[Rfam]
RNA sequence: UAGAUGAAUCUGUUAAGCUCAGGAGGGAUAGCGCCACGCUUAACAUUGCAGUGUAAUUUGGCGCUAUCUAUCCUGAGUUUCACGGGUUCAUCUU
Numbered sequence: 001u002a003g004a005u006g007a008a009u010c011u012g013u014u015a016a017g018c019u020c021a022g023g024a025g026g027g028a029u030a031g032c033g034c035c036a037c038g039c040u041u042a043a044c045a046u047u048g049c050a051g052u053g054u055a056a057u058u059u060g061g062c063g064c065u066a067u068c069u070a071u072c073c074u075g076a077g078u079u080u081c082a083c084g085g086g087u088u089c090a091u092c093u094u
Base pairs, nucleotide, nucleotide: 010085016079017078018077019076020075021074022073023072024071026069027068028067029066030065031064032063033062034061035060
The family of this 94-nucleotide sequence from Abrus precatorius is "MIR390 microRNA precursor family". Its family is annotated with RISC complex and miRNA-mediated post-transcriptional gene silencing in the Gene Ontology. Taxonomically the source falls in Abrus (Eukaryota, Embryophyta, Magnoliopsida, Pentapetalae). The family has 16 seed sequences and 649 matches in Rfam 15.1.